[Rfam]
RNA sequence: AACGAUAACGGCAAACCUUUCGAAAGAAAGGGACGCAAAGCUAUGGGUCUACGGAGUGUUCUCUAAGAUCGCCAGGCUACCGAAU
Numbered sequence: 001a002a003c004g005a006u007a008a009c010g011g012c013a014a015a016c017c018u019u020u021c022g023a024a025a026g027a028a029a030g031g032g033a034c035g036c037a038a039a040g041c042u043a044u045g046g047g048u049c050u051a052c053g054g055a056g057u058g059u060u061c062u063c064u065a066a067g068a069u070c071g072c073c074a075g076g077c078u079a080c081c082g083a084a085u
Base pairs, nucleotide, nucleotide: 001085003082004081011036012035016031017030018029019028020027021026034071039078040077041076042075044074045073046072047069048068049067